Rfam assigns this 126-nucleotide RNA sequence from Hydrogenibacillus schlegelii to the family "Guanidine-I riboswitch aptamer".
Pairs were carried over by alignment from the consensus structure.
The match comes from Rfam's covariance-model search (70 bits).

RNA sequence: UGAAAGUGUGCCUAGGGUUCCGCAGGCGAAGAAGGCCUGGUCUGGUCCGAGCGGCACAGGCGGCGAGCGAGGAAUUCCAAAGCGGCGCUGUUGCCGUUACACCGUGGGGAUAAAAGCCCGGGCGGG
Numbered sequence: 001u002g003a004a005a006g007u008g009u010g011c012c013u014a015g016g017g018u019u020c021c022g023c024a025g026g027c028g029a030a031g032a033a034g035g036c037c038u039g040g041u042c043u044g045g046u047c048c049g050a051g052c053g054g055c056a057c058a059g060g061c062g063g064c065g066a067g068c069g070a071g072g073a074a075u076u077c078c079a080a081a082g083c084g085g086c087g088c089u090g091u092u093g094c095c096g097u098u099a100c101a102c103c104g105u106g107g108g109g110a111u112a113a114a115a116g117c118c119c120g121g122g123c124g125g126g
Stems, first nucleotide, its partner, number of pairs: 007058006015048002020045002022042001023039005059098008100121001102124001107119003